[Rfam]
RNA sequence: GGUGGCAAGUGAUGAAAAUUAUUUAUAUGCUAAACACUGAAUAAUAUAAUAUGUGUGGACAAAAAACUCCGCUUAUUUUCUGAUGCCACC
Number, nucleotide and partner (000 for none) at each position: 001g000002g000003u088004g087005g086006c085007a084008a000009g000010u000011g000012a000013u000014g000015a000016a000017a000018a000019u000020u000021a000022u000023u000024u000025a000026u000027a000028u000029g000030c000031u000032a000033a000034a000035c000036a000037c000038u000039g000040a000041a000042u000043a000044a000045u000046a000047u000048a000049a000050u000051a000052u000053g000054u000055g000056u000057g000058g000059a000060c000061a000062a000063a000064a000065a000066a000067c000068u000069c000070c000071g000072c000073u000074u000075a000076u000077u000078u000079u000080c000081u000082g000083a000084u007085g006086c005087c004088a003089c000090c000
Rfam assigns this 90-nucleotide sequence from Dichanthelium oligosanthes to the family "Small nucleolar RNA R16".
Rfam 15.1 lists 884 matches to the family in 222 species.
The base pairs follow the family's consensus structure, which was predicted with PFOLD.
A search with the family's covariance model found it, with a score of 82 bits.
For this family Rfam cites "Purified box C/D snoRNPs are able to reproduce site-specific 2'-O-methylation of target RNA in vitro" (Galardi et al., Mol Cell Biol, 2002).
Lineage of the source: Eukaryota > Spermatophyta > Magnoliopsida > commelinids > Dichanthelium.